RNA: Glycine riboswitch aptamer
Organism: Cellulosilyticum lentocellum
RNA sequence: UGACAGUACUCUGGAGAGACUCAAGUUAUGAGCGCCGAAGGGGCAAAAGCAAUUUUGCUUAAUCUCUCAGGCAAAAGGACAGAGCAGGCUAU
Numbered sequence: 001u002g003a004c005a006g007u008a009c010u011c012u013g014g015a016g017a018g019a020c021u022c023a024a025g026u027u028a029u030g031a032g033c034g035c036c037g038a039a040g041g042g043g044c045a046a047a048a049g050c051a052a053u054u055u056u057g058c059u060u061a062a063u064c065u066c067u068c069a070g071g072c073a074a075a076a077g078g079a080c081a082g083a084g085c086a087g088g089c090u091a092u
Stems, first nucleotide, its partner, number of pairs: 007086001009084005020032004034072003037068002041066003047059001